The family of this 95-nucleotide sequence from Solanum commersonii is "MIR403 microRNA precursor family".
RNA sequence: GCAUAUUUCACGUUUGUGCGUGAAUCUAACAACCCUUUUCAUCAGGAAAACUGUUUGCUGUUUGCUAGAUUCACGCACAAACUCGUAAUAUGUAU
Numbered sequence: 001g002c003a004u005a006u007u008u009c010a011c012g013u014u015u016g017u018g019c020g021u022g023a024a025u026c027u028a029a030c031a032a033c034c035c036u037u038u039u040c041a042u043c044a045g046g047a048a049a050a051c052u053g054u055u056u057g058c059u060g061u062u063u064g065c066u067a068g069a070u071u072c073a074c075g076c077a078c079a080a081a082c083u084c085g086u087a088a089u090a091u092g093u094a095u
Stems, first nucleotide, its partner, number of pairs: 001093003005089003012082015028066001030064001032062001
Rfam 15.1 lists 215 matches to the family in 108 species. The literature on the family includes a 2009 paper in BMC Genomics by Mica et al., "High throughput approaches reveal splicing of primary microRNA transcripts and tissue specific expression of mature microRNAs in Vitis vinifera".